Small nucleolar RNA snoR77: a 150-nucleotide sequence from Zostera marina. A reference for the family is Marker et al. (2002), "Experimental RNomics: identification of 140 candidates for small non-messenger RNAs in the plant Arabidopsis thaliana", Curr Biol.
RNA sequence: AGGCAGCCUCUUGUUUCUUAUUCAUUGAUCAUUGAGGUGUUUAUUUGCUCGUAAAUUGAUGUAAAAUGCUUUUGCUCUUCAGAUUUGCUGAGAAUGUGAAAUUCAGUUUUUUCAUUUCAUGAAGUUGGUCUAGUAAAACGAAAGUAUAUU
Dot-bracket structure: .((((.(((..((.((..........)).))..).))))))...........................(((..(.(....(((((.(((..(((((................))))).....))).))))).....).)..)))......
Numbered sequence: 001a002g003g004c005a006g007c008c009u010c011u012u013g014u015u016u017c018u019u020a021u022u023c024a025u026u027g028a029u030c031a032u033u034g035a036g037g038u039g040u041u042u043a044u045u046u047g048c049u050c051g052u053a054a055a056u057u058g059a060u061g062u063a064a065a066a067u068g069c070u071u072u073u074g075c076u077c078u079u080c081a082g083a084u085u086u087g088c089u090g091a092g093a094a095u096g097u098g099a100a101a102u103u104c105a106g107u108u109u110u111u112u113c114a115u116u117u118c119a120u121g122a123a124g125u126u127g128g129u130c131u132a133g134u135a136a137a138a139c140g141a142a143a144g145u146a147u148a149u150u
Stems, first nucleotide, its partner, number of pairs: 002041004007037002009034001012031002015028002069144003074139001076137001081131005087125003092117005
By type it is an H/ACA-box small nucleolar RNA. A search with the family's covariance model found it, with a score of 69 bits. Lineage of the source: Eukaryota > Streptophytina > Embryophyta > Liliopsida > Zostera.